Notes:
Bacillus sRNA ncr1575: a 227-nucleotide sequence from Sporosarcina luteola. Pairs were carried over by alignment from the consensus structure, which is taken from published work. The organism belongs to Sporosarcina, within Bacteria. For this family Rfam cites "Identification of regulatory RNAs in Bacillus subtilis" (Irnov et al., Nucleic Acids Res, 2010).

RNA sequence: UUUACUUGAGAGGAAAGGACUGACGUGUGGGCGAUGAUUAAUUAAUCUUGAAUUUCCGCGAAAUGAAUGUUUGAUUCAAACGGAAAACAGGAUUAGUCUGUCCAUUUUUACGUCAAUUCCUCAAAUGAACGUAUUUUUGCAACCCCAAUUGCAGGGGGCUUUUUGAGGUAUGUUGAAAUUGGAUAGUUCUUACUGAUCCUUCCGUUAUGAUGCGGAGGGGUUUUUUU
Numbered sequence: 001u002u003u004a005c006u007u008g009a010g011a012g013g014a015a016a017g018g019a020c021u022g023a024c025g026u027g028u029g030g031g032c033g034a035u036g037a038u039u040a041a042u043u044a045a046u047c048u049u050g051a052a053u054u055u056c057c058g059c060g061a062a063a064u065g066a067a068u069g070u071u072u073g074a075u076u077c078a079a080a081c082g083g084a085a086a087a088c089a090g091g092a093u094u095a096g097u098c099u100g101u102c103c104a105u106u107u108u109u110a111c112g113u114c115a116a117u118u119c120c121u122c123a124a125a126u127g128a129a130c131g132u133a134u135u136u137u138u139g140c141a142a143c144c145c146c147a148a149u150u151g152c153a154g155g156g157g158g159c160u161u162u163u164u165g166a167g168g169u170a171u172g173u174u175g176a177a178a179u180u181g182g183a184u185a186g187u188u189c190u191u192a193c194u195g196a197u198c199c200u201u202c203c204g205u206u207a208u209g210a211u212g213c214g215g216a217g218g219g220g221u222u223u224u225u226u227u
Base pairs, nucleotide, nucleotide: 016109017108018107025103027101030098031097032096043095044094045093046092047091048090049089050088053085054084055083060077061072062071063070064069114175115174116173119168120167121166122165123164124163125162195222196221197220198219199218200217201216202215203214204213205212